[Rfam]
RNA sequence: UAAUUUGCUGAUGCAGCAUCAUCAAGAUUCUCAUGUUCAAAACUAAUUAAUUAGAAACAGAUUUUAUUACAAAGUAAUAUUUUUUUUCCUGCUCCCCAUAAUUUGUUGUAUGUGAAUCUUGAUAGUGCUGCAGCUGCAAAUAA
Numbered sequence: 001u002a003a004u005u006u007g008c009u010g011a012u013g014c015a016g017c018a019u020c021a022u023c024a025a026g027a028u029u030c031u032c033a034u035g036u037u038c039a040a041a042a043c044u045a046a047u048u049a050a051u052u053a054g055a056a057a058c059a060g061a062u063u064u065u066a067u068u069a070c071a072a073a074g075u076a077a078u079a080u081u082u083u084u085u086u087u088c089c090u091g092c093u094c095c096c097c098a099u100a101a102u103u104u105g106u107u108g109u110a111u112g113u114g115a116a117u118c119u120u121g122a123u124a125g126u127g128c129u130g131c132a133g134c135u136g137c138a139a140a141u142a143a
Base pairs, nucleotide, nucleotide: 010134012132013131014130015129016128017127018126019125021123022122023121024120025119026118027117028116029115030114032112033111034110035109036108
Dot-bracket structure: .........(.((((((((.((((((((((.(((((.......................................................................))))).)))))))))).)))))))).).........
Source information:
A member of the RNA family "mir-172 microRNA precursor family" from Capsicum baccatum, 143 nucleotides long. A search with the family's covariance model found it, with a score of 71 bits.